[Rfam]
RNA sequence: GGUUGAUCUGAAGGUAGUGAGUUAUCUCAAUGGACUGUUCACAAUCUGUUACAGAUCGAACUCCUUGUUCUAUUCCUUCCCCCAUCUUACUGCUGCACUUGACUUGUCAAAA
Numbered sequence: 001g002g003u004u005g006a007u008c009u010g011a012a013g014g015u016a017g018u019g020a021g022u023u024a025u026c027u028c029a030a031u032g033g034a035c036u037g038u039u040c041a042c043a044a045u046c047u048g049u050u051a052c053a054g055a056u057c058g059a060a061c062u063c064c065u066u067g068u069u070c071u072a073u074u075c076c077u078u079c080c081c082c083c084a085u086c087u088u089a090c091u092g093c094u095g096c097a098c099u100u101g102a103c104u105u106g107u108c109a110a111a112a
Base pairs, nucleotide, nucleotide: 001108002107003106005104007102008101010100011099014096015095016091017090018089019088020087021086043074044073045072048070